RNA sequence: GAGAGUCAUAUGAUGAUUAGUAGCAUAGUUCAAAUGAUCCAUUAAUGAUUAUACAAAUUCUUAGUCUUUCGCUCCUAUCUGAUGACUCAU
Numbered sequence: 001g002a003g004a005g006u007c008a009u010a011u012g013a014u015g016a017u018u019a020g021u022a023g024c025a026u027a028g029u030u031c032a033a034a035u036g037a038u039c040c041a042u043u044a045a046u047g048a049u050u051a052u053a054c055a056a057a058u059u060c061u062u063a064g065u066c067u068u069u070c071g072c073u074c075c076u077a078u079c080u081g082a083u084g085a086c087u088c089a090u
Stems, first nucleotide, its partner, number of pairs: 004087005
Dot-bracket structure: ...(((((..........................................................................)))))...